This 69-nucleotide RNA sequence belongs to the Rfam family "L31-Gammaproteobacteria ribosomal protein leader". Clan: Ribosomal Protein L31 Leader clan. Rfam classes the family as a cis-regulatory leader.
RNA sequence: CGUGCGGUGCCUGGCACCUGGAGCGAUUUAAGCUCCCGUGAUCAGGUAGCGGCACGACCCGACAGAGGU
Dot-bracket structure: (((((.((..(((((((....................))).))))...)).))))).............
Numbered sequence: 001c002g003u004g005c006g007g008u009g010c011c012u013g014g015c016a017c018c019u020g021g022a023g024c025g026a027u028u029u030a031a032g033c034u035c036c037c038g039u040g041a042u043c044a045g046g047u048a049g050c051g052g053c054a055c056g057a058c059c060c061g062a063c064a065g066a067g068g069u
Stems, first nucleotide, its partner, number of pairs: 001056005007050002011045004015040003